[Rfam]
RNA sequence: CUAUGCCUGGCUCCCUGUAUGCCACAAACAUAUUCCAACCUUUCAUCUUAGGUUGGCCAUUACGUUGGUGGCGUACCAGGAGCCAAGCCUAC
Numbered sequence: 001c002u003a004u005g006c007c008u009g010g011c012u013c014c015c016u017g018u019a020u021g022c023c024a025c026a027a028a029c030a031u032a033u034u035c036c037a038a039c040c041u042u043u044c045a046u047c048u049u050a051g052g053u054u055g056g057c058c059a060u061u062a063c064g065u066u067g068g069u070g071g072c073g074u075a076c077c078a079g080g081a082g083c084c085a086a087g088c089c090u091a092c
Base pairs, nucleotide, nucleotide: 002091003090005088006087008085009084010083011082012081013080014079017076018075019074020073021072022071023070024069027066028065029064
RNA: mir-160 microRNA precursor family
Organism: Eucalyptus grandis